[Rfam]
RNA sequence: UCCAGUGGUUGUCAGCUGUGCAGGCGUGUACCGUGCCUGAGCGAGUGUUACUCUGCUGGUAAAGGAAGGCUGUGCCGUUUGGGCUCGGCUCAGGUGUUGCUGUUUUAGUGAUAUCCUGACGCUGUGCUGUGGUGGAGCCUUACCCACUCUGAGAGUGGGCUGCUCCCUCACCGGUGGGGGCCGCCCUAGUCUGUGGGUAAACAUG
Numbered sequence: 001u002c003c004a005g006u007g008g009u010u011g012u013c014a015g016c017u018g019u020g021c022a023g024g025c026g027u028g029u030a031c032c033g034u035g036c037c038u039g040a041g042c043g044a045g046u047g048u049u050a051c052u053c054u055g056c057u058g059g060u061a062a063a064g065g066a067a068g069g070c071u072g073u074g075c076c077g078u079u080u081g082g083g084c085u086c087g088g089c090u091c092a093g094g095u096g097u098u099g100c101u102g103u104u105u106u107a108g109u110g111a112u113a114u115c116c117u118g119a120c121g122c123u124g125u126g127c128u129g130u131g132g133u134g135g136a137g138c139c140u141u142a143c144c145c146a147c148u149c150u151g152a153g154a155g156u157g158g159g160c161u162g163c164u165c166c167c168u169c170a171c172c173g174g175u176g177g178g179g180g181c182c183g184c185c186c187u188a189g190u191c192u193g194u195g196g197g198u199a200a201a202c203a204u205g
Stems, first nucleotide, its partner, number of pairs: 002059007011051002015046003021039005069138003073134005083127002086124002090119005095113007140200008157186003162181006